This 90-nucleotide sequence belongs to the Rfam family "DUF3800-VII RNA". It is one of the family's seed sequences. The family's consensus secondary structure is taken from published work.

RNA sequence: UGCAGAUAAGCGCGGGAGUACGUAGAGGCCGCUCGUACAGAGUGGCAGCCCGAAAGGGUGGGACCCUCGGUUCCCGGGAUCUGCACUUUU
Numbered sequence: 001u002g003c004a005g006a007u008a009a010g011c012g013c014g015g016g017a018g019u020a021c022g023u024a025g026a027g028g029c030c031g032c033u034c035g036u037a038c039a040g041a042g043u044g045g046c047a048g049c050c051c052g053a054a055a056g057g058g059u060g061g062g063a064c065c066c067u068c069g070g071u072u073c074c075c076g077g078g079a080u081c082u083g084c085a086c087u088u089u090u
Base pairs, nucleotide, nucleotide: 001085002084003083004082005081006080007079011077013076014075015074016073022071023070025068026067027066028046029045030044031043032042033041034040049058050057051056